[Rfam]
RNA sequence: UGCUGUUAAUGAUGUUUUAUAUAAAUGGGAAUCUCUCUGAAUAAGAGUGAAGAGCUUUUUUUUUUUAUAUACUGAAACAGAA
Numbered sequence: 001u002g003c004u005g006u007u008a009a010u011g012a013u014g015u016u017u018u019a020u021a022u023a024a025a026u027g028g029g030a031a032u033c034u035c036u037c038u039g040a041a042u043a044a045g046a047g048u049g050a051a052g053a054g055c056u057u058u059u060u061u062u063u064u065u066u067a068u069a070u071a072c073u074g075a076a077a078c079a080g081a082a
Stems, first nucleotide, its partner, number of pairs: 001082001003080005

Background
Shown here is an 82-nucleotide sequence from Denticeps clupeoides, a member of the family "Small nucleolar RNA SNORD79". Its family is annotated with nucleolus and RNA processing in the Gene Ontology. Lineage of the source: Eukaryota > Euteleostomi > Actinopteri > Clupeiformes > Denticeps. It is annotated as a C/D-box small nucleolar RNA. A search with the family's covariance model found it, with a score of 63 bits. Pairs were carried over by alignment from the consensus structure, which was predicted with PFOLD. Its Rfam clan is "SNORD74 clan". snoRNA U79 or Z22 is found in intron 7 of the gas5 gene in humans and is also present in mice.